[Rfam]
The family of this 116-nucleotide sequence from Xylanimonas protaetiae is "SAM (S-adenosyl methionine) riboswitch aptamer".
Nucleotides: 116
Base pairs, nucleotide, nucleotide: 001079002078003077004076009038011037012036013035014034015033016032021030022029039066040065041064044062045061046060048057049056082105083104084103085102086101087100088099089098
Number, partner (000 for none) and nucleotide at each position: 001079g002078g003077u004076c005000a006000c007000g008000a009038g010000u011037g012036c013035c014034a015033g016032c017000g018000c019000g020000a021030a022029g023000c024000c025000c026000c027000g028000g029022c030021u031000c032016g033015c034014u035013g036012g037011c038009c039066g040065g041064c042000a043000a044062c045061c046060c047000u048057c049056c050000c051000u052000c053000c054000g055000c056049g057048g058000c059000g060046g061045g062044g063000u064041g065040c066039c067000c068000c069000g070000g071000g072000u073000g074000a075000c076004g077003a078002c079001c080000a081000g082105g083104c084103c085102g086101u087100g088099c089098g090000c091000a092000c093000c094000u095000c096000c097000c098089c099088g100087c101086a102085c103084g104083g105082c106000a107000a108000g109000c110000g111000c112000c113000a114000a115000g116000a
Gene Ontology terms of the family: regulation of gene expression and S-adenosylmethionine metabolic process. Pairs were carried over by alignment from the consensus structure, which is taken from published work. The match comes from Rfam's covariance-model search (100 bits). From the family's description: SAM-IV is a mRNA element that regulates gene expression via direct sensing of S-adenosylmethionine (SAM or AdoMet).